[Rfam]
RNA sequence: UAGUCUGAAACGAUAACUUUCAAUUUCAUGUCUUUGACAUUUUUCUCUGGAGAAAGUUUUUUGUCUUACUCAUUUGAUGAGAAUG
Numbered sequence: 001u002a003g004u005c006u007g008a009a010a011c012g013a014u015a016a017c018u019u020u021c022a023a024u025u026u027c028a029u030g031u032c033u034u035u036g037a038c039a040u041u042u043u044u045c046u047c048u049g050g051a052g053a054a055a056g057u058u059u060u061u062u063g064u065c066u067u068a069c070u071c072a073u074u075u076g077a078u079g080a081g082a083a084u085g
Stems, first nucleotide, its partner, number of pairs: 001085002004082002
Dot-bracket structure: ((.((...........................................................................)).))
Source information: Small nucleolar RNA SNORD111: an 85-nucleotide RNA from Vulpes vulpes. Rfam 15.1 lists 894 matches to the family in 541 species. The organism belongs to Vulpes, within Eukaryota. Rfam links the family to the GO terms nucleolus and RNA processing.